The family of this 114-nucleotide RNA sequence from Denticeps clupeoides is "Potassium channel RNA editing signal".
A search with the family's covariance model found it, with a score of 109 bits.
By type it is a cis-regulatory element.
The literature on the family includes a 2004 paper in Nat Struct Mol Biol by Bhalla et al., "Control of human potassium channel inactivation by editing of a small mRNA hairpin".
[Rfam]
RNA sequence: GUGGGCUACGGGGACAUGAAGCCCAUCACGGUGGGCGGCAAGAUCGUGGGCUCCCUGUGCGCCAUAGCCGGCGUGCUGACCAUCGCCCUGCCGGUGCCGGUCAUCGUGUCCAAC
Numbered sequence: 001g002u003g004g005g006c007u008a009c010g011g012g013g014a015c016a017u018g019a020a021g022c023c024c025a026u027c028a029c030g031g032u033g034g035g036c037g038g039c040a041a042g043a044u045c046g047u048g049g050g051c052u053c054c055c056u057g058u059g060c061g062c063c064a065u066a067g068c069c070g071g072c073g074u075g076c077u078g079a080c081c082a083u084c085g086c087c088c089u090g091c092c093g094g095u096g097c098c099g100g101u102c103a104u105c106g107u108g109u110c111c112a113a114c
Base pairs, nucleotide, nucleotide: 001114002113004111005110007108008107009106010105011104013102014101015100018097020095037077038076039075040074049063050062051061
About the family: This family represents a group of sequences related to the human potassium channel Kv1.1 hairpin element which directs the efficient modification of an adenosine to inosine by an adenosine deaminase acting on RNA (ADAR). The ADAR modification causes an isoleucine/valine recoding event which lies in the ion-conducting pore of the potassium channel. It is thought that this editing event targets the process of fast inactivation and allows a more rapid recovery from inactivation at negative potentials. Lineage of the source: Eukaryota > Eumetazoa > Osteoglossocephalai > Clupeocephala > Denticeps.